[Rfam]
RNA sequence: AAUGGGGAGUAGCUUGCUUAAUAGCGUUAAUUAGUUAUUAAGAUUUCGUGUCAACAUACUUGAACAUUCUUUGUUCAUGGCACGAAUGCCGAAUCGGUUAGCAAGACCAUAAACAUAUUAUUCGCCUGUGUGUUGGGGGGCGAAUUGUGUGUCUAUGGAAAUGCCCGACUGAGAUUUUCGUU
Numbered sequence: 001a002a003u004g005g006g007g008a009g010u011a012g013c014u015u016g017c018u019u020a021a022u023a024g025c026g027u028u029a030a031u032u033a034g035u036u037a038u039u040a041a042g043a044u045u046u047c048g049u050g051u052c053a054a055c056a057u058a059c060u061u062g063a064a065c066a067u068u069c070u071u072u073g074u075u076c077a078u079g080g081c082a083c084g085a086a087u088g089c090c091g092a093a094u095c096g097g098u099u100a101g102c103a104a105g106a107c108c109a110u111a112a113a114c115a116u117a118u119u120a121u122u123c124g125c126c127u128g129u130g131u132g133u134u135g136g137g138g139g140g141c142g143a144a145u146u147g148u149g150u151g152u153c154u155a156u157g158g159a160a161a162u163g164c165c166c167g168a169c170u171g172a173g174a175u176u177u178u179c180g181u182u
Stems, first nucleotide, its partner, number of pairs: 017042009045086009061077005088181002091177004
RNA: Manganese Mn2+ riboswitch aptamer (yybP-ykoY)